[Rfam]
RNA sequence: AGCGAGUUUCUUCGGGGCGGAGCUCGACCGCCAACACCGGAAGUAGUCGCGUUCAUCGACGCGAACAAGGACGACAUGGUUGAGGGUCGCCCGCUCGGAGUCGAGCCCAUCUGCAGCCUGUUGCAGGUGGCUCCG
Numbered sequence: 001a002g003c004g005a006g007u008u009u010c011u012u013c014g015g016g017g018c019g020g021a022g023c024u025c026g027a028c029c030g031c032c033a034a035c036a037c038c039g040g041a042a043g044u045a046g047u048c049g050c051g052u053u054c055a056u057c058g059a060c061g062c063g064a065a066c067a068a069g070g071a072c073g074a075c076a077u078g079g080u081u082g083a084g085g086g087u088c089g090c091c092c093g094c095u096c097g098g099a100g101u102c103g104a105g106c107c108c109a110u111c112u113g114c115a116g117c118c119u120g121u122u123g124c125a126g127g128u129g130g131c132u133c134c135g
Base pairs, nucleotide, nucleotide: 016032017031018030019029020028096135097134098133099132100131107130108129110127111126112125113124114123115122116121
RNA: ALIL pseudoknot
Organism: Tessaracoccus defluvii